Rfam assigns this 404-nucleotide RNA sequence from Sulfitobacter brevis to the family "Bacterial RNase P class A". Rfam describes the family as follows. Ribonuclease P (RNase P) is a ubiquitous endoribonuclease, found in archaea, bacteria and eukarya as well as chloroplasts and mitochondria.
Nucleotides: 404
Stems, first nucleotide, its partner, number of pairs: 001400010011389001012347007020039008044387003048384005053232004061278002064275001066228005071085005086100001087098004101223002106221002108217003123163002125159008171189006190212001191210004196205003236303004246294005269284005311330008
Number, partner (000 for none) and nucleotide at each position: 001400g002399u003398g004397g005396a006395a007394g008393g009392c010391u011389g012347g013346a014345u015344g016343a017342c018341c019000g020039c021038g022037g023036u024035c025034u026033u027032g028000g029000c030000a031000a032027c033026a034025a035024g036023g037022u038021c039020g040000a041000g042000g043000a044387a045386a046385g047000u048384c049383c050382g051381g052380a053232c054231u055230c056229c057000a058000a059000g060000a061278a062277g063000a064275u065000a066228c067227g068226g069225u070224g071085c072084c073083g074082g075081g076000u077000a078000a079000c080000a081075c082074c083073c084072g085071g086100g087098c088097g089096g090095g091000g092000c093000a094000a095090c096089c097088c098087g099000a100086c101223g102222g103000a104000g105000a106221g107220c108217g109216c110215c111000a112000c113000a114000g115000a116000a117000a118000a119000u120000a121000a122000a123163c124162c125159g126158c127157c128156c129155c130154g131153a132152a133000c134000a135000g136000c137000c138000g139000c140000u141000u142000c143000u144000g145000c146000g147000g148000g149000g150000a151000c152132u153131u154130u155129g156128g157127g158126g159125u160000a161000a162124g163123g164000g165000u166000g167000a168000a169000a170000c171189g172188g173187u174186g175185g176184g177000g178000u179000a180000a181000g182000a183000g184176c185175c186174c187173a188172c189171c190212g191210c192209g193208c194207c195000g196205c197204u198203g199000g200000c201000a202000a203198c204197a205196g206000g207194g208193g209192c210191g211000g212190c213000a214000g215110g216109g217108c218000a219000a220107g221106c222102c223101c224070c225069a226068c227067u228066g229056g230055g231054a232053g233000c234000a235000a236303u237302g238301c239300c240000a241000a242000a243000u244000a245000g246294g247293g248292a249291c250290c251000g252000c253000g254000u255000g256000c257000u258000c259000g260000g261000c262000a263000a264000c265000g266000g267000g268000c269284g270283g271282g272281g273280a274000u275064g276000c277062u278061u279000c280273u281272u282271c283270c284269c285000c286000a287000g288000c289000a290250g291249g292248u293247c294246c295000g296000g297000g298000u299000u300239g301238g302237c303236a304000g305000c306000u307000g308000u309000a310000g311330c312329u313328g314327c315326a316325u317324c318323g319000g320000c321000a322000a323318c324317g325316g326315u327314g328313u329312g330311g331000u332000u333000a334000g335000a336000u337000g338000a339000a340000u341018g342017g343016u344015c345014a346013u347012c348000c349000a350000c351000c352000c353000u354000c355000a356000a357000a358000c359000u360000u361000c362000g363000g364000u365000u366000c367000g368000g369000g370000g371000g372000a373000g374000a375000c376000a377000a378000a379000a380052u381051c382050c383049g384048g385046c386045u387044u388000a389011u390000a391010g392009g393008c394007c395006u396005u397004c398003c399002a400001c401000g402000c403000a404000a